RNA sequence: GUGAGACUCAAAUGUGGGGCACACUUCUGGAUUAUGCGUAGAAAGUGCUACUACUUUUGGGUGUCUC
Numbered sequence: 001g002u003g004a005g006a007c008u009c010a011a012a013u014g015u016g017g018g019g020c021a022c023a024c025u026u027c028u029g030g031a032u033u034a035u036g037c038g039u040a041g042a043a044a045g046u047g048c049u050a051c052u053a054c055u056u057u058u059g060g061g062u063g064u065c066u067c
Stems, first nucleotide, its partner, number of pairs: 004064001006062007014054004018049005025043003
mir-290 microRNA precursor family: a 67-nucleotide sequence from Rattus norvegicus. The family's consensus secondary structure was predicted with RNAalifold. Rfam links the family to the GO terms RISC complex and miRNA-mediated post-transcriptional gene silencing. Lineage of the source: Eukaryota > Euarchontoglires > Glires > Myomorpha > Rattus. On this family, see Suh et al., Dev Biol 2004: "Human embryonic stem cells express a unique set of microRNAs".